Shown here is a 309-nucleotide RNA sequence from Carnegiea gigantea, a member of the family "Plant signal recognition particle RNA". The literature on the family includes a 2002 paper in Curr Opin Struct Biol by Wild et al., "Towards the structure of the mammalian signal recognition particle". Its family is annotated with SRP-dependent cotranslational protein targeting to membrane, signal sequence recognition and signal recognition particle, endoplasmic reticulum targeting in the Gene Ontology. By type it is a non-coding RNA gene. NCBI's taxonomy places the organism under Eukaryota, Tracheophyta, Spermatophyta, Mesangiospermae, Carnegiea.

RNA sequence: GCCGAGCUCAGUCACGUUUGCUUGUGACCCAAGUGGGGGUAUUAAGGUGGUGGAAUAUGGGCUCGAUCAACUAGGUCGGAUUUGUGACAGCCGAAUGCCUGGCUUGCCCCUAUCCAAGUUGGGAGCUUGUCCCUAGUGACCUAGGUGUAGGUUUGGGUUGAUUGGGUCCUAAAGUGGUGGGGACUGCAUGAGGCUGGUUUCACAGAGCAACGAACACUGCCCGCUCUUGUCAGUGGAAGGGUACCGAGUCGGUGCCAUCCAGAUCCAAUGGUGCCUGAUUGGUUGUGCUCCUAUUGAACCAUUACCUUU
Numbered sequence: 001g002c003c004g005a006g007c008u009c010a011g012u013c014a015c016g017u018u019u020g021c022u023u024g025u026g027a028c029c030c031a032a033g034u035g036g037g038g039g040u041a042u043u044a045a046g047g048u049g050g051u052g053g054a055a056u057a058u059g060g061g062c063u064c065g066a067u068c069a070a071c072u073a074g075g076u077c078g079g080a081u082u083u084g085u086g087a088c089a090g091c092c093g094a095a096u097g098c099c100u101g102g103c104u105u106g107c108c109c110c111u112a113u114c115c116a117a118g119u120u121g122g123g124a125g126c127u128u129g130u131c132c133c134u135a136g137u138g139a140c141c142u143a144g145g146u147g148u149a150g151g152u153u154u155g156g157g158u159u160g161a162u163u164g165g166g167u168c169c170u171a172a173a174g175u176g177g178u179g180g181g182g183a184c185u186g187c188a189u190g191a192g193g194c195u196g197g198u199u200u201c202a203c204a205g206a207g208c209a210a211c212g213a214a215c216a217c218u219g220c221c222c223g224c225u226c227u228u229g230u231c232a233g234u235g236g237a238a239g240g241g242u243a244c245c246g247a248g249u250c251g252g253u254g255c256c257a258u259c260c261a262g263a264u265c266c267a268a269u270g271g272u273g274c275c276u277g278a279u280u281g282g283u284u285g286u287g288c289u290c291c292u293a294u295u296g297a298a299c300c301a302u303u304a305c306c307u308u309u
Base pairs, nucleotide, nucleotide: 001040002039003038004023005022006021007020010017028037029036030035044308045307046306047305048304049303050302051301052300053299056296057295058293059292060291061288062287064285065284066283068281069280070279072277073276074275075274076273078266079265080264081263082262083261084260087258090256094253099252100251101250102249103248104247105246106245108240109239113237114236115235116234118231120229121228122227123226124225125224126223129168131166132165133164135162137160138159139158140157141156142155143154144153145152146151169174176221177220178219179218180217185214187212189210194205195204196203